A member of the RNA family "tRNA", 74 nucleotides long. Pairs were carried over by alignment from the consensus structure, which is taken from published work. Rfam classes the family as a transfer RNA. It is one of the family's seed sequences.

[Rfam]
RNA sequence: GGUUUCGUGGUGUAGUUGGUUAUCACGUCAGUCUAACACACUGAAGGUCUCCGGUUCGAACCCGGGCGAAGCCA
Numbered sequence: 001g002g003u004u005u006c007g008u009g010g011u012g013u014a015g016u017u018g019g020u021u022a023u024c025a026c027g028u029c030a031g032u033c034u035a036a037c038a039c040a041c042u043g044a045a046g047g048u049c050u051c052c053g054g055u056u057c058g059a060a061c062c063c064g065g066g067c068g069a070a071g072c073c074a
Base pairs, nucleotide, nucleotide: 001073002072003071004070005069006068007067010026011025012024028044029043030042031041032040050066051065052064053063054062